[Rfam]
Background
Shown here is a 103-nucleotide sequence from Asparagus officinalis, a member of the family "mir-399 microRNA precursor family". Pairs were carried over by alignment from the consensus structure, which was predicted with PFOLD. The family has 13 seed sequences and 2,396 matches in Rfam 15.1. The organism belongs to Asparagus, within Eukaryota. mir-399 was identified in both Arabidopsis thaliana and Oryza sativa computationally and was later experimentally verified. mir-399 is thought to target mRNAs coding for a phosphatase transporter. The mature sequence is excised from the 3' arm of the hairpin. It scores 64 bits against the family's covariance model.

RNA sequence: UGGUGAAUGGCAGGGCAAAUCUCCUUUGGCACCGGUAGGAAAAGGGCAGAAAUGCGCCAAUAUUGGCUUCGGUGCCAAAGGAGAGUUGCACUGUAAUUCUCAA
Numbered sequence: 001u002g003g004u005g006a007a008u009g010g011c012a013g014g015g016c017a018a019a020u021c022u023c024c025u026u027u028g029g030c031a032c033c034g035g036u037a038g039g040a041a042a043a044g045g046g047c048a049g050a051a052a053u054g055c056g057c058c059a060a061u062a063u064u065g066g067c068u069u070c071g072g073u074g075c076c077a078a079a080g081g082a083g084a085g086u087u088g089c090a091c092u093g094u095a096a097u098u099c100u101c102a103a
Base pairs, nucleotide, nucleotide: 005099006098007097008096011093012092013091015089016088017087018086021083022082023081024080027077028076029075030074031073032072033071034070035069